[Rfam]
RNA sequence: UACUAAGAGCUUAUGGUGAAUGGCUUGGUUGAUACAGGCGAUGAAGGGUGUGGCAAGCUGCGAUAAGCUGCGGUGAGGUGCAAGCUACCUUUGACCCGCAGAUUCCCGAAUGUGACAACACCUUCGAGGUAAUACUCGAAGAUCCCGCCGUAAGGCGGGAAGCGAACCCGGGGAAGUGAAACAUCUCAGUACCCGGAGGAAAAUAAACCGUAAAGUAUUCCCCCAGUAGCGGCGAGCGAACAGGGAGUAGCCCAAACUCGAUACGUGUUAAAGCCUGCCGGCGUUGCGUAUCGGGAGUUAUGGGGCAUCGAUGGAGAGCACGGCGGUGCUUUCAGGAAGUUACAAAUUUCACUCAUAAUCGAAUCAGCUGGGAAGCUGAACCAAAGAAGGUGAAAGUCCUGUAGGUGAAAUGAGCGAAACUUCCGUGUUGGUGUUCCCAAGUACUAUGAGGCACGUGAAACCUUGUAGGAAUUUAGGCUGACCAUGGCCUAAGGCUAAAUACUUGUAUCAGACCGAUAGUGAACUAGUACCGUGAGGGAAAGCCGAAAAGAACCCCGGUGAGGGGAGUGAAAUAGAACCUGAAACCAUAAGUUUACAAAG
Numbered sequence: 001u002a003c004u005a006a007g008a009g010c011u012u013a014u015g016g017u018g019a020a021u022g023g024c025u026u027g028g029u030u031g032a033u034a035c036a037g038g039c040g041a042u043g044a045a046g047g048g049u050g051u052g053g054c055a056a057g058c059u060g061c062g063a064u065a066a067g068c069u070g071c072g073g074u075g076a077g078g079u080g081c082a083a084g085c086u087a088c089c090u091u092u093g094a095c096c097c098g099c100a101g102a103u104u105c106c107c108g109a110a111u112g113u114g115a116c117a118a119c120a121c122c123u124u125c126g127a128g129g130u131a132a133u134a135c136u137c138g139a140a141g142a143u144c145c146c147g148c149c150g151u152a153a154g155g156c157g158g159g160a161a162g163c164g165a166a167c168c169c170g171g172g173g174a175a176g177u178g179a180a181a182c183a184u185c186u187c188a189g190u191a192c193c194c195g196g197a198g199g200a201a202a203a204u205a206a207a208c209c210g211u212a213a214a215g216u217a218u219u220c221c222c223c224c225a226g227u228a229g230c231g232g233c234g235a236g237c238g239a240a241c242a243g244g245g246a247g248u249a250g251c252c253c254a255a256a257c258u259c260g261a262u263a264c265g266u267g268u269u270a271a272a273g274c275c276u277g278c279c280g281g282c283g284u285u286g287c288g289u290a291u292c293g294g295g296a297g298u299u300a301u302g303g304g305g306c307a308u309c310g311a312u313g314g315a316g317a318g319c320a321c322g323g324c325g326g327u328g329c330u331u332u333c334a335g336g337a338a339g340u341u342a343c344a345a346a347u348u349u350c351a352c353u354c355a356u357a358a359u360c361g362a363a364u365c366a367g368c369u370g371g372g373a374a375g376c377u378g379a380a381c382c383a384a385a386g387a388a389g390g391u392g393a394a395a396g397u398c399c400u401g402u403a404g405g406u407g408a409a410a411u412g413a414g415c416g417a418a419a420c421u422u423c424c425g426u427g428u429u430g431g432u433g434u435u436c437c438c439a440a441g442u443a444c445u446a447u448g449a450g451g452c453a454c455g456u457g458a459a460a461c462c463u464u465g466u467a468g469g470a471a472u473u474u475a476g477g478c479u480g481a482c483c484a485u486g487g488c489c490u491a492a493g494g495c496u497a498a499a500u501a502c503u504u505g506u507a508u509c510a511g512a513c514c515g516a517u518a519g520u521g522a523a524c525u526a527g528u529a530c531c532g533u534g535a536g537g538g539a540a541a542g543c544c545g546a547a548a549a550g551a552a553c554c555c556c557g558g559u560g561a562g563g564g565g566a567g568u569g570a571a572a573u574a575g576a577a578c579c580u581g582a583a584a585c586c587a588u589a590a591g592u593u594u595a596c597a598a599a600g
Stems, first nucleotide, its partner, number of pairs: 007594010022579001023543002027514002029511007036503002038163002046107003049062003068101006077089003112121003122141007143160007167198001168196005178185002208215001218499001219246004229237002249496004257295011302438003307432005344422002347419004352414005358406003364379005382386001388400003444468008475490005530537002553565004
Dot-bracket structure: ......((((((((((.....(((..(((((((((((((......((((((........))).....((((((...(((.......)))......))))))...)))....(((....)))(((((((......))))))).(((((((....))))))).))...((((((.....((....))......))))).).........(......)..(((((......((.....)).....))))..((((....(((((((((((.................)))))))))))......(((..(((((................................((.((((.(((((.(((...(((((......)))))..(...).(((.......)))...)))...))))).)))).)).....)))))...))).....((((((((.........))))))))......(((((......)))))..))))..)..)).))))))).))...............((....))....)).........((((.....)))).............).....))))))))))......

This 600-nucleotide part of an RNA from an uncultured bacterium belongs to the Rfam family "Bacterial large subunit ribosomal RNA".